[Rfam]
RNA sequence: ACUCAACACUAACAAAUUAAAAUGAGUGAAUCGUCGCUACUAAAGCAUGCUGUCAUCCGACAGAUCCUUGAACAGCGGGUUAGCUCAAAACUUGUCAUAUACGAGUUU
Numbered sequence: 001a002c003u004c005a006a007c008a009c010u011a012a013c014a015a016a017u018u019a020a021a022a023u024g025a026g027u028g029a030a031u032c033g034u035c036g037c038u039a040c041u042a043a044a045g046c047a048u049g050c051u052g053u054c055a056u057c058c059g060a061c062a063g064a065u066c067c068u069u070g071a072a073c074a075g076c077g078g079g080u081u082a083g084c085u086c087a088a089a090a091c092u093u094g095u096c097a098u099a100u101a102c103g104a105g106u107u108u
Stems, first nucleotide, its partner, number of pairs: 023087005034078005043069003050063004

This 108-nucleotide sequence from Flavobacterium sp. belongs to the Rfam family "6S-Flavo RNA". Pairs were carried over by alignment from the consensus structure, which is taken from published work. A search with the family's covariance model found it, with a score of 96 bits. The source organism's lineage runs through Bacteria, Bacteroidota, Flavobacteriia, Flavobacteriaceae and Flavobacterium.